[Rfam]
This 74-nucleotide sequence from Brassica carinata belongs to the Rfam family "Small nucleolar RNA snoR53Y". The family has 7 seed sequences and 513 matches in Rfam 15.1. NCBI's taxonomy places the organism under Eukaryota, Spermatophyta, Gunneridae, Brassicaceae, Brassica. It scores 74 bits against the family's covariance model.
RNA sequence: AAUCCCUAUGAUGGUUUAACCAUGCUAAUACUGAUUUCUAAUGAAUGAAUCAAAGUUAAGUUACUGAGGGAUUU
Numbered sequence: 001a002a003u004c005c006c007u008a009u010g011a012u013g014g015u016u017u018a019a020c021c022a023u024g025c026u027a028a029u030a031c032u033g034a035u036u037u038c039u040a041a042u043g044a045a046u047g048a049a050u051c052a053a054a055g056u057u058a059a060g061u062u063a064c065u066g067a068g069g070g071a072u073u074u
Stems, first nucleotide, its partner, number of pairs: 001073005
For this family Rfam cites "Multiple snoRNA gene clusters from Arabidopsis" (Brown et al., RNA, 2001). Rfam classes the family as a C/D-box small nucleolar RNA.